[Rfam]
RNA: Y RNA-like
Organism: Budvicia aquatica
RNA sequence: GCGGUAAAUGCAGAUGAAAGUACUUUGUCCCCGGUUCGAGCCCGGGCCGUUAAGCAAUUAACGGUAGCUCAGUUGGUAGAGCAAGCUCCCUUUCAUCGACUUUUGUUACCGCACC
Numbered sequence: 001g002c003g004g005u006a007a008a009u010g011c012a013g014a015u016g017a018a019a020g021u022a023c024u025u026u027g028u029c030c031c032c033g034g035u036u037c038g039a040g041c042c043c044g045g046g047c048c049g050u051u052a053a054g055c056a057a058u059u060a061a062c063g064g065u066a067g068c069u070c071a072g073u074u075g076g077u078a079g080a081g082c083a084a085g086c087u088c089c090c091u092u093u094c095a096u097c098g099a100c101u102u103u104u105g106u107u108a109c110c111g112c113a114c115c
Stems, first nucleotide, its partner, number of pairs: 002111006013097007023085003030046005037076001047064006067082004